[Rfam]
The record is an 83-nucleotide sequence from Piliocolobus tephrosceles, which matches "mir-3943 microRNA precursor family" in Rfam. Pairs were carried over by alignment from the consensus structure, which was predicted with RNAalifold. Rfam links the family to the GO terms miRNA-mediated post-transcriptional gene silencing and RISC complex. Lineage of the source: Eukaryota > Craniata > Gnathostomata > Mammalia > Piliocolobus.

RNA sequence: AACACAGCUGCGGCCCAGCCCCCAGGAUUCACUUGGUAUGGAAAACUUGCUAAGUAAAGCGGGGGGUGGACCAUGGUUGGCUC
Numbered sequence: 001a002a003c004a005c006a007g008c009u010g011c012g013g014c015c016c017a018g019c020c021c022c023c024a025g026g027a028u029u030c031a032c033u034u035g036g037u038a039u040g041g042a043a044a045a046c047u048u049g050c051u052a053a054g055u056a057a058a059g060c061g062g063g064g065g066g067u068g069g070a071c072c073a074u075g076g077u078u079g080g081c082u083c
Stems, first nucleotide, its partner, number of pairs: 001082001005079006012072002015069003019065005026060001028058002031055008